[Rfam]
RNA sequence: UUAUUGCACUAGGGGAGCUAUUUUAAGAUGGCUGAGAGGAAAAUGAUCUGACCCUUAGAACCCGAUCUAGAUAAUACUAGCGUGGGGAAGUGCAGUCGUUCAAUA
Numbered sequence: 001u002u003a004u005u006g007c008a009c010u011a012g013g014g015g016a017g018c019u020a021u022u023u024u025a026a027g028a029u030g031g032c033u034g035a036g037a038g039g040a041a042a043a044u045g046a047u048c049u050g051a052c053c054c055u056u057a058g059a060a061c062c063c064g065a066u067c068u069a070g071a072u073a074a075u076a077c078u079a080g081c082g083u084g085g086g087g088a089a090g091u092g093c094a095g096u097c098g099u100u101c102a103a104u105a
Base pairs, nucleotide, nucleotide: 006093007092008091009090010089011055012054013053014052016049017032018031019030020029021028039048040047061086062085063084064083067080068079069078070077